[Rfam]
RNA sequence: CGAGGCUUGAGGAGGGUCCUCCUUAGUACGAGAGGACUUGGAGGGACGCACCUCUGGUGUACCAGUUGUCGCGCUAGCGGCACGGCUGGAUAGCUAUGUGCGGAAAGGAUAAGCGCUGAAAGCAUCUAAGCGCGAAGCCCUCUCCAAGAUGAGGCCUCGUAAGGGUUCUGACCCGAAAGCCCCCUGGAAGACUACCAGGUUGAUAGGCCGGGUGUGUAAGCGCAGCAAUGCGCUGAGCUAACCGGUACUAACGGGCGAAA
Numbered sequence: 001c002g003a004g005g006c007u008u009g010a011g012g013a014g015g016g017u018c019c020u021c022c023u024u025a026g027u028a029c030g031a032g033a034g035g036a037c038u039u040g041g042a043g044g045g046a047c048g049c050a051c052c053u054c055u056g057g058u059g060u061a062c063c064a065g066u067u068g069u070c071g072c073g074c075u076a077g078c079g080g081c082a083c084g085g086c087u088g089g090a091u092a093g094c095u096a097u098g099u100g101c102g103g104a105a106a107g108g109a110u111a112a113g114c115g116c117u118g119a120a121a122g123c124a125u126c127u128a129a130g131c132g133c134g135a136a137g138c139c140c141u142c143u144c145c146a147a148g149a150u151g152a153g154g155c156c157u158c159g160u161a162a163g164g165g166u167u168c169u170g171a172c173c174c175g176a177a178a179g180c181c182c183c184c185u186g187g188a189a190g191a192c193u194a195c196c197a198g199g200u201u202g203a204u205a206g207g208c209c210g211g212g213u214g215u216g217u218a219a220g221c222g223c224a225g226c227a228a229u230g231c232g233c234u235g236a237g238c239u240a241a242c243c244g245g246u247a248c249u250a251a252c253g254g255g256c257g258a259a260a
Stems, first nucleotide, its partner, number of pairs: 001159008011145004017045006047102005055096003062089005067082006107139002113133005163173002179256004183199005204250003207246005214238001220233005
Dot-bracket structure: ((((((((..((((..((((((.................)))))).(((((...(((....(((((((((((....))))))..)))))....))).)))))....((....(((((...........)))))....))..))))......))))))))...((.......)).....(((((((((.......)))))....((((((((..(.....(((((....)))))....)...))))).)))..))))....

Notes:
The record is a 260-nucleotide part of an RNA from Thermogutta terrifontis, which matches "Bacterial large subunit ribosomal RNA" in Rfam. Pairs were carried over by alignment from the consensus structure, which is taken from published work. The source organism's lineage runs through Bacteria, Planctomycetota, Planctomycetia, Pirellulales and Thermogutta. A search with the family's covariance model found it, with a score of 2771 bits.